[Rfam]
Source information:
TPP riboswitch aptamer (THI element): a 108-nucleotide RNA sequence from Clostridium novyi. Its family is annotated with thiamine pyrophosphate binding in the Gene Ontology. NCBI's taxonomy places the organism under Bacteria, Bacillati, Eubacteriales, Clostridiaceae, Clostridium novyi. The match comes from Rfam's covariance-model search (74 bits).
RNA sequence: AUUUUUAACUAGGGGUGCUUACCUAAAUGUAGGCUGAGAGAUAAAGUUUAUCAACCCUUGUACCUGAUGUGGAUAAUGCCAACGUAGGAAAAGUUAUUAGUUAUAAGA
Dot-bracket structure: .....(((((((((..(((((........)))))......((((...))))...))))....((((...(((......)))...))))...)))))............